[Rfam]
RNA: Ruegeria cis52 sRNA
RNA sequence: UUCUCAGCGCGUGUUUCAGCACGAUGUUGCGAAAACUGACGCCCUUCAGGCGAGCGGUGCGGAUGUAUUGCGCGUUCAUGACCUCCGCCAUCGAGGCGCGGGUCAUGCGGGCGAUGUAGCCCAUGCCGUAAAGCGCGAUGGUCAGCACGGGCAGGAAGAAGUUCUGGAAAUUGGCGUCAUCC
Numbered sequence: 001u002u003c004u005c006a007g008c009g010c011g012u013g014u015u016u017c018a019g020c021a022c023g024a025u026g027u028u029g030c031g032a033a034a035a036c037u038g039a040c041g042c043c044c045u046u047c048a049g050g051c052g053a054g055c056g057g058u059g060c061g062g063a064u065g066u067a068u069u070g071c072g073c074g075u076u077c078a079u080g081a082c083c084u085c086c087g088c089c090a091u092c093g094a095g096g097c098g099c100g101g102g103u104c105a106u107g108c109g110g111g112c113g114a115u116g117u118a119g120c121c122c123a124u125g126c127c128g129u130a131a132a133g134c135g136c137g138a139u140g141g142u143c144a145g146c147a148c149g150g151g152c153a154g155g156a157a158g159a160a161g162u163u164c165u166g167g168a169a170a171u172u173g174g175c176g177u178c179a180u181c182c
Stems, first nucleotide, its partner, number of pairs: 004141003008137005014131002016128001019126003028123002031120001040111001042109001046105001048103001051100002054097001057073006082096004145182001147180001149177001151175002154165004